[Rfam]
RNA: Small nucleolar RNA snoR100
RNA sequence: AUAAGUAGGAAGCAUGGCGAUGUGCACAAAAAUUUAAUUGGGUCCCCAGGUCUGUCCUCUCCAAUGCCAAUUGGAUUUGAUUUGGAAGUAUGGUUCCGUAGCAAAACA
Numbered sequence: 001a002u003a004a005g006u007a008g009g010a011a012g013c014a015u016g017g018c019g020a021u022g023u024g025c026a027c028a029a030a031a032a033u034u035u036a037a038u039u040g041g042g043u044c045c046c047c048a049g050g051u052c053u054g055u056c057c058u059c060u061c062c063a064a065u066g067c068c069a070a071u072u073g074g075a076u077u078u079g080a081u082u083u084g085g086a087a088g089u090a091u092g093g094u095u096c097c098g099u100a101g102c103a104a105a106a107c108a
Stems, first nucleotide, its partner, number of pairs: 012025004040091001042089002050081003055074002